The record is a 298-nucleotide part of an RNA from Dimargaris cristalligena, which matches "Eukaryotic large subunit ribosomal RNA" in Rfam. The match comes from Rfam's covariance-model search (2522 bits).
[Rfam]
Nucleotides: 298
Base pairs, nucleotide, nucleotide: 005154006153007152008151009150010149011148012147013146014145015144016143017142020046021045022044026039027038028037029036030035050057051056066100067099068098069097070096073092074091075090076089077088078087102137103136104134105133106132108130109129110128115123157296158295160293164286165285166284167283168282169281173262174261175260176259178257179256180255181254182253183252184250186218187217188216189215193210194209195208196207197206198205199204222247223246224245225244227243228242230241231240264274265273
Number, partner (000 for none) and nucleotide at each position: 001000g002000a003000g004000u005154c006153u007152a008151c009150c010149a011148g012147g013146c014145g015144u016143g017142c018000a019000a020046g021045u022044a023000u024000u025000c026039g027038g028037u029036c030035u031000c032000u033000c034000a035030g036029g037028a038027c039026u040000u041000a042000g043000a044022u045021g046020c047000g048000c049000a050057a051056u052000g053000a054000a055000g056051g057050u058000g059000a060000c061000u062000u063000u064000a065000u066100c067099u068098g069097g070096g071000g072000a073092u074091g075090u076089u077088c078087c079000c080000c081000u082000c083000c084000g085000g086000g087078g088077g089076g090075a091074c092073g093000g094000c095000a096070c097069c098068c099067a100066g101000g102137g103136u104134g105133g106132g107000g108130c109129c110128c111000u112000g113000a114000c115123g116000u117000c118000u119000u120000g121000c122000a123115c124000c125000g126000a127000c128110g129109g130108g131000c132106u133105u134104c135000a136103a137102c138000a139000a140000a141000a142017g143016c144015a145014c146013g147012u148011c149010u150009g151008g152007u153006a154005g155000g156000a157296c158295c159000c160293g161000a162000a163000a164286a165285a166284c167283g168282g169281u170000g171000a172000g173262c174261u175260a176259u177000u178257c179256c180255u181254g182253g183252g184250c185000a186218g187217g188216g189215u190000g191000a192000a193210g194209c195208c196207a197206g198205a199204g200000g201000a202000a203000a204199c205198u206197c207196u208195g209194g210193u211000g212000g213000a214000g215189g216188c217187c218186c219000g220000c221000a222247g223246g224245g225244g226000u227243u228242u229000u230241g231240a232000c233000g234000u235000g236000c237000a238000a239000a240231u241230c242228a243227a244225u245224c246223c247222u248000c249000g250184g251000a252183c253182c254181u255180g256179g257178g258000u259176a260175u261174a262173g263000g264274g265273g266000c267000g268000a269000a270000a271000g272000a273265c274264u275000u276000a277000u278000c279000g280000a281169a282168c283167c284166g285165u286164u287000u288000a289000g290000u291000a292000g293160c294000u295158g296157g297000u298000u